[Rfam]
RNA sequence: ACAAGUUCUGACCGUCGGUCUACCGAGCAAUAUCACGCGCUCGGUGGAAGAUCUUCCCUCCGUCGU
Numbered sequence: 001a002c003a004a005g006u007u008c009u010g011a012c013c014g015u016c017g018g019u020c021u022a023c024c025g026a027g028c029a030a031u032a033u034c035a036c037g038c039g040c041u042c043g044g045u046g047g048a049a050g051a052u053c054u055u056c057c058c059u060c061c062g063u064c065g066u
Base pairs, nucleotide, nucleotide: 003063005061010056011055014052015051016050019048020047021046022045023044024043025042026041027040028039